A member of the RNA family "mir-971 microRNA precursor family" from Danaus chrysippus, 74 nucleotides long. The source organism's lineage runs through Eukaryota, Eumetazoa, Protostomia, Dicondylia and Anosia. The base pairs follow the family's consensus structure, which was predicted with RNAalifold. Rfam 15.1 lists 118 matches to the family in 116 species.

RNA sequence: UGUUCAGUUCACUCUAAGUAUGAACGCCAAGCAUAUUAUUGAGUUUGGUGUUCUACCUUACAGUGAACUGAGCG
Numbered sequence: 001u002g003u004u005c006a007g008u009u010c011a012c013u014c015u016a017a018g019u020a021u022g023a024a025c026g027c028c029a030a031g032c033a034u035a036u037u038a039u040u041g042a043g044u045u046u047g048g049u050g051u052u053c054u055a056c057c058u059u060a061c062a063g064u065g066a067a068c069u070g071a072g073c074g
Base pairs, nucleotide, nucleotide: 006069007068008067009066010065011064012063013062015060016059017058025050026049027048028047029046030045031044032043